[Rfam]
The record is an 83-nucleotide sequence from Abrus precatorius, which matches "Small nucleolar RNA Z159/U59" in Rfam. Clan: SNORD59 clan. For this family Rfam cites "The high diversity of snoRNAs in plants: identification and comparative study of 120 snoRNA genes from Oryza sativa" (Chen et al., Nucleic Acids Res, 2003).
RNA sequence: GCCUCUGAGGAUGAUCAGAAAAUUACUUUCGUUCUUCUGACUUGCCCAUGAGGAAAGUACAUGGAGACCUGAACUGAAGAGGC
Numbered sequence: 001g002c003c004u005c006u007g008a009g010g011a012u013g014a015u016c017a018g019a020a021a022a023u024u025a026c027u028u029u030c031g032u033u034c035u036u037c038u039g040a041c042u043u044g045c046c047c048a049u050g051a052g053g054a055a056a057g058u059a060c061a062u063g064g065a066g067a068c069c070u071g072a073a074c075u076g077a078a079g080a081g082g083c
Stems, first nucleotide, its partner, number of pairs: 003081004